Shown here is a 62-nucleotide RNA sequence from Orycteropus afer, a member of the family "U7 small nuclear RNA". From the family's description: Animal histone pre-mRNAs are spliced by a different mechanism than nuclear pre-mRNAs and self-splicing introns. Taxonomically the source falls in Orycteropus afer (Eukaryota, Metazoa, Bilateria, Dipnotetrapodomorpha).
RNA sequence: UAGUGUUACAGCUCUUUUAGAAUUUGUCUAGCAGGUUUUCCGUUUUUUUCCAGAAGACCCUC
Numbered sequence: 001u002a003g004u005g006u007u008a009c010a011g012c013u014c015u016u017u018u019a020g021a022a023u024u025u026g027u028c029u030a031g032c033a034g035g036u037u038u039u040c041c042g043u044u045u046u047u048u049u050c051c052a053g054a055a056g057a058c059c060c061u062c
Stems, first nucleotide, its partner, number of pairs: 034059007042051001